[Rfam]
RNA sequence: ACACAGGGAAGGAGGUGGUCCGACAAAUUGAUUGAUUUAUGGACAUGUGAGGUGGCUGCCCGCUAGCAGCGCGGGGUGAAUUGCCUGCGCGCGCUGGCGAAUUCCCCGCAGCCACCCGGCCCCCGAGCCCCUCGGUCAGUCCAACCCAGGAACCAAGGCUCGGGGGCCGCUCCAU
Numbered sequence: 001a002c003a004c005a006g007g008g009a010a011g012g013a014g015g016u017g018g019u020c021c022g023a024c025a026a027a028u029u030g031a032u033u034g035a036u037u038u039a040u041g042g043a044c045a046u047g048u049g050a051g052g053u054g055g056c057u058g059c060c061c062g063c064u065a066g067c068a069g070c071g072c073g074g075g076g077u078g079a080a081u082u083g084c085c086u087g088c089g090c091g092c093g094c095u096g097g098c099g100a101a102u103u104c105c106c107c108g109c110a111g112c113c114a115c116c117c118g119g120c121c122c123c124c125g126a127g128c129c130c131c132u133c134g135g136u137c138a139g140u141c142c143a144a145c146c147c148a149g150g151a152a153c154c155a156a157g158g159c160u161c162g163g164g165g166g167c168c169g170c171u172c173c174a175u
Base pairs, nucleotide, nucleotide: 014060015059016058017057018056019055061099062098063097064096065095066094067093069092070091071090072089074086075085076084117169118168119167120166121165122164123163124162125161126160127159128158129157131149132148134146135145136144
Annotation: This 175-nucleotide sequence from Mycobacterium dioxanotrophicus belongs to the Rfam family "Actinobacteria sRNA Ms_IGR-5". NCBI's taxonomy places the organism under Bacteria, Actinomycetota, Actinomycetes, Mycobacteriales, Mycobacterium. Rfam classes the family as a small RNA.